[Rfam]
RNA sequence: AGGCACGUUAAUCCAAGAGCUGUGGCUCCCUGCAGUAGCUGCAGCUCUCCAACAACGUGCGAGAGCAACGGGAAGGACUUUGACUGCUGGGCCCCUUCUGCCCCUUGCUGUCACUCAUCCCUCCUAUAUAU
Numbered sequence: 001a002g003g004c005a006c007g008u009u010a011a012u013c014c015a016a017g018a019g020c021u022g023u024g025g026c027u028c029c030c031u032g033c034a035g036u037a038g039c040u041g042c043a044g045c046u047c048u049c050c051a052a053c054a055a056c057g058u059g060c061g062a063g064a065g066c067a068a069c070g071g072g073a074a075g076g077a078c079u080u081u082g083a084c085u086g087c088u089g090g091g092c093c094c095c096u097u098c099u100g101c102c103c104c105u106u107g108c109u110g111u112c113a114c115u116c117a118u119c120c121c122u123c124c125u126a127u128a129u130a131u
Stems, first nucleotide, its partner, number of pairs: 013044001018040006071124003075120002086111002089104001090102002
RNA: Small nucleolar RNA SNORA44